[Rfam]
This 210-nucleotide RNA sequence belongs to the Rfam family "raiA RNA". Rfam classes the family as a riboswitch.

Nucleotides: 210
Stems, first nucleotide, its partner, number of pairs: 001210001003208007012201003015195005028181003031041001033091007050084002058076001061073002082188001103174005108122005126167004135159002141152003
Number, partner (000 for none) and nucleotide at each position: 001210a002000c003208g004207c005206u006205u007204c008203g009202g010000g011000u012201c013200u014199g015195u016194g017193g018192u019191u020000g021000a022000a023000a024000g025000u026000c027000g028181a029180u030179g031041c032000c033091a034090g035089u036088c037087g038086c039085a040000g041031g042000c043000g044000a045000a046000a047000c048000g049000a050084u051083c052000c053000a054000c055000a056000u057000a058076a059000g060000c061073g062072g063000g064000c065000c066000a067000a068000a069000g070000c071000g072062c073061c074000c075000g076058u077000g078000a079000g080000c081000a082188u083051g084050g085039u086038g087037c088036g089035g090034c091033u092000u093000a094000g095000a096000u097000g098000u099000a100000a101000g102000u103174c104173c105172g106171u107170c108122c109121g110120c111119g112118c113000a114000u115000a116000a117000c118112g119111c120110g121109c122108g123000a124000g125000a126167g127166g128165g129164c130000c131000g132000g133000u134000a135159g136158u137000g138000g139000g140000a141152g142151g143150c144000a145000a146000u147000u148000a149000c150143g151142c152141u153000c154000a155000g156000u157000a158136g159135c160000g161000g162000a163000a164129g165128c166127c167126c168000c169000g170107g171106g172105c173104g174103g175000c176000g177000a178000g179030u180029g181028u182000g183000g184000g185000g186000g187000c188082a189000a190000a191019g192018a193017c194016c195015a196000g197000g198000u199014c200013a201012g202009c203008c204007g205006a206005a207004g208003u209000u210001u